[Rfam]
Rfam assigns this 103-nucleotide sequence from Plutella xylostella to the family "mir-8517 microRNA precursor family". It scores 93 bits against the family's covariance model. The family's consensus secondary structure was predicted with RNAalifold. Rfam links the family to the GO terms RISC complex and miRNA-mediated post-transcriptional gene silencing.

Nucleotides: 103
Base pairs, nucleotide, nucleotide: 002101003100005098006097011092012091013090014089015088016087017086018085019084020083021082022076023075024064025063026062027061028060029059030058044054045053046052047051
Number, partner (000 for none) and nucleotide at each position: 001000u002101u003100a004000g005098u006097g007000g008000a009000c010000g011092c012091u013090u014089u015088a016087g017086c018085u019084a020083u021082u022076g023075u024064u025063c026062u027061g028060u029059c030058a031000c032000u033000c034000u035000c036000u037000g038000a039000a040000a041000g042000g043000g044054a045053a046052c047051a048000a049000u050000u051047u052046g053045u054044u055000c056000u057000u058030u059029g060028a061027c062026a063025g064024a065000g066000a067000g068000u069000g070000a071000c072000a073000a074000a075023a076022c077000a078000g079000u080000g081000c082021a083020a084019u085018a086017g087016c088015u089014a090013a091012a092011g093000c094000g095000u096000c097006c098005a099000g100003u101002a102000c103000c